[Rfam]
RNA sequence: GGGAGCAAAUGGCGUCAGGAACUCUGGAACUUUUCUUUGUAUGUUACAUUAAUCCAUAUAAGAAAAUCUCUUUUAAUGAGGAGUGAUGUAGUUACAAACUCUCCAGAGCCAUAAUUAGAGCAAACUAAUUGAAGCUGUGUUUUGACACACUUUCCAAACUCACGGGUGCGGGCGACACACUCACAACACGGCUGCAGAAUCGUUAGGCUAAUAAUGCUCGCUCGCAUCCCGUCAAGCGCGCCCCCCCCAGACGCCUUUCUGCUCCGUGCCUGCGCUGCGCUCUCCACUGGAAGAUAUUAACAGCGAUCAUUAGCACUUCCGUGGAAUUCUGAUGUUAGGAU
Numbered sequence: 001g002g003g004a005g006c007a008a009a010u011g012g013c014g015u016c017a018g019g020a021a022c023u024c025u026g027g028a029a030c031u032u033u034u035c036u037u038u039g040u041a042u043g044u045u046a047c048a049u050u051a052a053u054c055c056a057u058a059u060a061a062g063a064a065a066a067u068c069u070c071u072u073u074u075a076a077u078g079a080g081g082a083g084u085g086a087u088g089u090a091g092u093u094a095c096a097a098a099c100u101c102u103c104c105a106g107a108g109c110c111a112u113a114a115u116u117a118g119a120g121c122a123a124a125c126u127a128a129u130u131g132a133a134g135c136u137g138u139g140u141u142u143u144g145a146c147a148c149a150c151u152u153u154c155c156a157a158a159c160u161c162a163c164g165g166g167u168g169c170g171g172g173c174g175a176c177a178c179a180c181u182c183a184c185a186a187c188a189c190g191g192c193u194g195c196a197g198a199a200u201c202g203u204u205a206g207g208c209u210a211a212u213a214a215u216g217c218u219c220g221c222u223c224g225c226a227u228c229c230c231g232u233c234a235a236g237c238g239c240g241c242c243c244c245c246c247c248c249a250g251a252c253g254c255c256u257u258u259c260u261g262c263u264c265c266g267u268g269c270c271u272g273c274g275c276u277g278c279g280c281u282c283u284c285c286a287c288u289g290g291a292a293g294a295u296a297u298u299a300a301c302a303g304c305g306a307u308c309a310u311u312a313g314c315a316c317u318u319c320c321g322u323g324g325a326a327u328u329c330u331g332a333u334g335u336u337a338g339g340a341u
Base pairs, nucleotide, nucleotide: 047334048333049332050331051330053325054324055323056322057321060318061317062316068083069082070081071080072079073078088310089309091307092306093305095303099108100107101106120269121268122267131153132152133151134150136149137148138147139146140145164247165246166245168241169240207225208224210222212220
A member of the RNA family "ncRNA Repressor of NFAT (nuclear factor of activated T cells)" from Sciurus carolinensis, 341 nucleotides long. Lineage of the source: Eukaryota > Craniata > Mammalia > Sciuromorpha > Sciurus. For this family Rfam cites "A strategy for probing the function of noncoding RNAs finds a repressor of NFAT" (Willingham et al., Science, 2005). Rfam classes the family as a non-coding RNA gene. It scores 277 bits against the family's covariance model.